[Rfam]
RNA sequence: UCCGUCAGUAUGCCGAACCCUGCCGCUGACCGGGAUCCAAUCGCUUUCCAGCUGGCAGGGACGGGGGAACCACGUUUCCAUGGCCUCUCACAGGCCUGGGGUUAAGUCGAUAACGCUCCGUCCCGUACGGCGGCGUCUCCGGCCGGGUGUCUCCGACCCGAACCCGACAGCUCACCUCGCAGGCAUGAGAGAGGCAAAUC
Numbered sequence: 001u002c003c004g005u006c007a008g009u010a011u012g013c014c015g016a017a018c019c020c021u022g023c024c025g026c027u028g029a030c031c032g033g034g035a036u037c038c039a040a041u042c043g044c045u046u047u048c049c050a051g052c053u054g055g056c057a058g059g060g061a062c063g064g065g066g067g068a069a070c071c072a073c074g075u076u077u078c079c080a081u082g083g084c085c086u087c088u089c090a091c092a093g094g095c096c097u098g099g100g101g102u103u104a105a106g107u108c109g110a111u112a113a114c115g116c117u118c119c120g121u122c123c124c125g126u127a128c129g130g131c132g133g134c135g136u137c138u139c140c141g142g143c144c145g146g147g148u149g150u151c152u153c154c155g156a157c158c159c160g161a162a163c164c165c166g167a168c169a170g171c172u173c174a175c176c177u178c179g180c181a182g183g184c185a186u187g188a189g190a191g192a193g194g195c196a197a198a199u200c
Stems, first nucleotide, its partner, number of pairs: 011185004018060008062179005071098002099165003107142003145159004

c-di-AMP riboswitch aptamer (ydaO/yuaA leader): a 200-nucleotide RNA sequence from Arthrobacter sp. ISL-48. About the family: This family represents a conserved RNA structure found upstream of the ydaO and yuaA genes in Bacillus subtilis and related genes in other bacteria. A search with the family's covariance model found it, with a score of 61 bits.